[Rfam]
Description: This 59-nucleotide RNA sequence from Microvirga alba belongs to the Rfam family "terC RNA". The family's consensus secondary structure is taken from published work. Rfam 15.1 lists 1,112 matches to the family in 772 species. Lineage of the source: Bacteria > Pseudomonadati > Hyphomicrobiales > Methylobacteriaceae > Microvirga.

RNA sequence: GUCGGUGACCGGGCCCCUCUGGCGGGCGCAGAAUUGCGCGCGUGAUGUCGGAACCGACA
Numbered sequence: 001g002u003c004g005g006u007g008a009c010c011g012g013g014c015c016c017c018u019c020u021g022g023c024g025g026g027c028g029c030a031g032a033a034u035u036g037c038g039c040g041c042g043u044g045a046u047g048u049c050g051g052a053a054c055c056g057a058c059a
Stems, first nucleotide, its partner, number of pairs: 005054002009051004022043003026039004